[Rfam]
RNA sequence: CCGUCCGCCUCGUGGGACGCCUUCACGCCGUGCGCCUCUGCACGGCUACGCUGGCGAUGUGCGCCUUCCGCCGGGAAGCCGCAAAGCCGACAGCCGUCGCACUCCAGGGAGCACAUCCAUG
Numbered sequence: 001c002c003g004u005c006c007g008c009c010u011c012g013u014g015g016g017a018c019g020c021c022u023u024c025a026c027g028c029c030g031u032g033c034g035c036c037u038c039u040g041c042a043c044g045g046c047u048a049c050g051c052u053g054g055c056g057a058u059g060u061g062c063g064c065c066u067u068c069c070g071c072c073g074g075g076a077a078g079c080c081g082c083a084a085a086g087c088c089g090a091c092a093g094c095c096g097u098c099g100c101a102c103u104c105c106a107g108g109g110a111g112c113a114c115a116u117c118c119a120u121g
Base pairs, nucleotide, nucleotide: 060083061082062081063080065078066077067076068075086100087099089098090097091096
A member of the RNA family "Streptomyces-metH RNA" from Streptomyces sp. ISL-98, 121 nucleotides long.
The family's consensus secondary structure is taken from published work.
Lineage of the source: Bacteria > Bacillati > Kitasatosporales > Streptomycetaceae > Streptomyces.
By type it is a small RNA.